RNA sequence: UGGCGCCCAAUGGUGUGGCUUUGGAUACAGGGGAAUUCGCGAGGGAAGAGGCGUCUAAGUGUUCGGCCGAAGAAGAUAAAAAAGUGAAAGUCAGUAUGACAAAAAUUGCCACGGGAGCCUGCCGCGCCAUUCUUAAAGGUACAGUAGCGCCUAAGUAUGGGACAAGGAUUAAGUAAGCAUAACGUUUUUGCUAAGCAAUUAAAAGAAGCUUUAAAGACACGGGGAGUAAAGGUUAAGAGUAAUGAUCUUUUUAAGUUUUUUGACCUUAUUAAGGACACCUGUCCGU
Numbered sequence: 001u002g003g004c005g006c007c008c009a010a011u012g013g014u015g016u017g018g019c020u021u022u023g024g025a026u027a028c029a030g031g032g033g034a035a036u037u038c039g040c041g042a043g044g045g046a047a048g049a050g051g052c053g054u055c056u057a058a059g060u061g062u063u064c065g066g067c068c069g070a071a072g073a074a075g076a077u078a079a080a081a082a083a084g085u086g087a088a089a090g091u092c093a094g095u096a097u098g099a100c101a102a103a104a105a106u107u108g109c110c111a112c113g114g115g116a117g118c119c120u121g122c123c124g125c126g127c128c129a130u131u132c133u134u135a136a137a138g139g140u141a142c143a144g145u146a147g148c149g150c151c152u153a154a155g156u157a158u159g160g161g162a163c164a165a166g167g168a169u170u171a172a173g174u175a176a177g178c179a180u181a182a183c184g185u186u187u188u189u190g191c192u193a194a195g196c197a198a199u200u201a202a203a204a205g206a207a208g209c210u211u212u213a214a215a216g217a218c219a220c221g222g223g224g225a226g227u228a229a230a231g232g233u234u235a236a237g238a239g240u241a242a243u244g245a246u247c248u249u250u251u252u253a254a255g256u257u258u259u260u261u262g263a264c265c266u267u268a269u270u271a272a273g274g275a276c277a278c279c280u281g282u283c284c285g286u
Stems, first nucleotide, its partner, number of pairs: 006033003013028003038050001040048001091139002095135002105130001107129001110126001112124003145165001147163001150161004170213003173209002220262008230248006271286001273284004
A member of the RNA family "Mason-Pfizer monkey virus packaging signal" from Sciurus vulgaris, 286 nucleotides long. It is annotated as a cis-regulatory element. On this family, see Mustafa et al., Virus Res 2004: "Mutational analysis of the predicted secondary RNA structure of the Mason-Pfizer monkey virus packaging signal". NCBI's taxonomy places the organism under Eukaryota, Vertebrata, Dipnotetrapodomorpha, Eutheria, Sciurus. It scores 173 bits against the family's covariance model.